[Rfam]
RNA sequence: UGCUGUAACGGCUCUUUAGGAAGAGUAGAUGUUUCUUCAUACACAGUUUCGACUCCACAUCCGAAUAUUGUCCCGCUUGAAUCCCGCGAUUGGUUGCACGUAGCCAUUUGAUUAAUCAAUGUCGCUCGGUUUCCGGUUUAAGUUUGAAGAUUACGCUUGAGGGUAGAAAUAUCGCAGAGAGAUCUUCGUCGUGGUUCGAUUGCGAGUGGGAUGGCAGUAAUUCGGAUCGUUGAAAUUUGGAGAUAGUCUGGUCAACCUUUUUU
Numbered sequence: 001u002g003c004u005g006u007a008a009c010g011g012c013u014c015u016u017u018a019g020g021a022a023g024a025g026u027a028g029a030u031g032u033u034u035c036u037u038c039a040u041a042c043a044c045a046g047u048u049u050c051g052a053c054u055c056c057a058c059a060u061c062c063g064a065a066u067a068u069u070g071u072c073c074c075g076c077u078u079g080a081a082u083c084c085c086g087c088g089a090u091u092g093g094u095u096g097c098a099c100g101u102a103g104c105c106a107u108u109u110g111a112u113u114a115a116u117c118a119a120u121g122u123c124g125c126u127c128g129g130u131u132u133c134c135g136g137u138u139u140a141a142g143u144u145u146g147a148a149g150a151u152u153a154c155g156c157u158u159g160a161g162g163g164u165a166g167a168a169a170u171a172u173c174g175c176a177g178a179g180a181g182a183u184c185u186u187c188g189u190c191g192u193g194g195u196u197c198g199a200u201u202g203c204g205a206g207u208g209g210g211a212u213g214g215c216a217g218u219a220a221u222u223c224g225g226a227u228c229g230u231u232g233a234a235a236u237u238u239g240g241a242g243a244u245a246g247u248c249u250g251g252u253c254a255a256c257c258u259u260u261u262u263u
Stems, first nucleotide, its partner, number of pairs: 002012002018258003023253002026250004032245001034243001037241002045237009059227003063223003066219006072210008080201004084194006091135001093133001096130002100126001103123001105121004110117002137141001145188007156179003163172003
RNA: Fungal signal recognition particle RNA